[Rfam]
RNA: GlmZ RNA activator of glmS mRNA
Organism: Erwinia sp. 198
RNA sequence: GUAGAAUGCUCAUUCCACCUCUUAUGUUCGCGUAAGCUUCAUAAACCCGGGAAUGAUGCAGAGCCAUUAGGGUACCUGUUGUCCAUCUGCCGCUAUCGCCGUCAGGCCUUAACGGAGGUUCAGGGCAAAACGUUGAGUCAGGUACCAGCCGGUCUUUCGGCCUGUUUAUUUACACCCGCCAAAUCGGCGGGUGUUUUUUU
Numbered sequence: 001g002u003a004g005a006a007u008g009c010u011c012a013u014u015c016c017a018c019c020u021c022u023u024a025u026g027u028u029c030g031c032g033u034a035a036g037c038u039u040c041a042u043a044a045a046c047c048c049g050g051g052a053a054u055g056a057u058g059c060a061g062a063g064c065c066a067u068u069a070g071g072g073u074a075c076c077u078g079u080u081g082u083c084c085a086u087c088u089g090c091c092g093c094u095a096u097c098g099c100c101g102u103c104a105g106g107c108c109u110u111a112a113c114g115g116a117g118g119u120u121c122a123g124g125g126c127a128a129a130a131c132g133u134u135g136a137g138u139c140a141g142g143u144a145c146c147a148g149c150c151g152g153u154c155u156u157u158c159g160g161c162c163u164g165u166u167u168a169u170u171u172a173c174a175c176c177c178g179c180c181a182a183a184u185c186g187g188c189g190g191g192u193g194u195u196u197u198u199u200u
Stems, first nucleotide, its partner, number of pairs: 001064002007060003010056004016051001018050001020043001028036001071146007081126004092113001094111002152161003172194009